The record is a 75-nucleotide RNA sequence from Trichocoleus sp. FACHB-262, which matches "Cyano-1 RNA" in Rfam.

RNA sequence: AAAUGUGUGAGGAGCAAAGUCAGAACUGAAGAACCCCUGGAGUCGAAACACGGAAAGACGCCCAGGGGUUUUUCA
Numbered sequence: 001a002a003a004u005g006u007g008u009g010a011g012g013a014g015c016a017a018a019g020u021c022a023g024a025a026c027u028g029a030a031g032a033a034c035c036c037c038u039g040g041a042g043u044c045g046a047a048a049c050a051c052g053g054a055a056a057g058a059c060g061c062c063c064a065g066g067g068g069u070u071u072u073u074c075a
Stems, first nucleotide, its partner, number of pairs: 027075005034068002039063002042059003